[Rfam]
RNA sequence: GGGGCCGACCUGGUUUCGACGUGGGUAGCGAAGCAAUUCAGGGCAUACCGAGGACCCGUCACCUCGUAAAUCAAUGGGACUUAAGUAACUGCGAACGACGAAACGUACGCACUGGCCGCUUAACACCGGCCUGCCUCGCACUAGCUCGCUGACGGGCUAGGGUCGCAAGACCGCGCGAGGUCAUUCACGUCAGCUAAUCCCUGGUGAAGUCACGGCGCCGGGGCCGAAAAUUCAGUGACUCGCCGUAGCGAAGCGUGUUCGUCCGCGUCGGUGCGGUUAAAGCAAAAGACUGGACUAAGUAUGUAGAACUGGUUGUAGAGUGCUUGCGGACGCGGGUUCGAUUCCCGCCGGCUCCACCA
Numbered sequence: 001g002g003g004g005c006c007g008a009c010c011u012g013g014u015u016u017c018g019a020c021g022u023g024g025g026u027a028g029c030g031a032a033g034c035a036a037u038u039c040a041g042g043g044c045a046u047a048c049c050g051a052g053g054a055c056c057c058g059u060c061a062c063c064u065c066g067u068a069a070a071u072c073a074a075u076g077g078g079a080c081u082u083a084a085g086u087a088a089c090u091g092c093g094a095a096c097g098a099c100g101a102a103a104c105g106u107a108c109g110c111a112c113u114g115g116c117c118g119c120u121u122a123a124c125a126c127c128g129g130c131c132u133g134c135c136u137c138g139c140a141c142u143a144g145c146u147c148g149c150u151g152a153c154g155g156g157c158u159a160g161g162g163u164c165g166c167a168a169g170a171c172c173g174c175g176c177g178a179g180g181u182c183a184u185u186c187a188c189g190u191c192a193g194c195u196a197a198u199c200c201c202u203g204g205u206g207a208a209g210u211c212a213c214g215g216c217g218c219c220g221g222g223g224c225c226g227a228a229a230a231u232u233c234a235g236u237g238a239c240u241c242g243c244c245g246u247a248g249c250g251a252a253g254c255g256u257g258u259u260c261g262u263c264c265g266c267g268u269c270g271g272u273g274c275g276g277u278u279a280a281a282g283c284a285a286a287a288g289a290c291u292g293g294a295c296u297a298a299g300u301a302u303g304u305a306g307a308a309c310u311g312g313u314u315g316u317a318g319a320g321u322g323c324u325u326g327c328g329g330a331c332g333c334g335g336g337u338u339c340g341a342u343u344c345c346c347g348c349c350g351g352c353u354c355c356a357c358c359a
Base pairs, nucleotide, nucleotide: 001355002354003353004352005351006350007349020328021327022326023325024324025323026322027321033316034315035314036313038312039311040310041309044303045302046301047300048299049066050065051064052063053062055078056077057076058075059074112133114131115130116129117128118127134180135179136178137177138176139175141160142159143158144157145156146155148194149193150192151191152190153189154188199223200222201221202220203219204218205217208240209239210238211237212236213235242277243276244275245274246273247272249270250269251268253266254265255264257295258294259293260292261290262289263288332348333347334346335345336344

Background: A member of the RNA family "transfer-messenger RNA" from Mycetohabitans endofungorum, 359 nucleotides long. Lineage of the source: Bacteria > Pseudomonadati > Pseudomonadota > Burkholderiales > Mycetohabitans. It scores 216 bits against the family's covariance model. Its family is annotated with RNA catabolic process in the Gene Ontology. The family's RNA type in Rfam is non-coding RNA gene. About the family: Bacterial tmRNA, also known as 10Sa RNA or SsrA, is named for its dual tRNA and mRNA-like properties.